[Rfam]
RNA: Small nucleolar RNA SNORA22
RNA sequence: UUGCACAGAGAACACAUCCAGGUGUGCUUCUUUUGGCUCUCUUGGUUAGAAAUCUGUGCUAUAUUGUUGUCUGUUCUUUUUCCUCUGCGUUGGAAGAGAUUGUUCUUCUACACGUAUUCAGAAGAACCGCACAUGG
Numbered sequence: 001u002u003g004c005a006c007a008g009a010g011a012a013c014a015c016a017u018c019c020a021g022g023u024g025u026g027c028u029u030c031u032u033u034u035g036g037c038u039c040u041c042u043u044g045g046u047u048a049g050a051a052a053u054c055u056g057u058g059c060u061a062u063a064u065u066g067u068u069g070u071c072u073g074u075u076c077u078u079u080u081u082c083c084u085c086u087g088c089g090u091u092g093g094a095a096g097a098g099a100u101u102g103u104u105c106u107u108c109u110a111c112a113c114g115u116a117u118u119c120a121g122a123a124g125a126a127c128c129g130c131a132c133a134u135g136g
Stems, first nucleotide, its partner, number of pairs: 003059006010053001018045005024039001026037003061077001063075001065073002084122004088114003092109007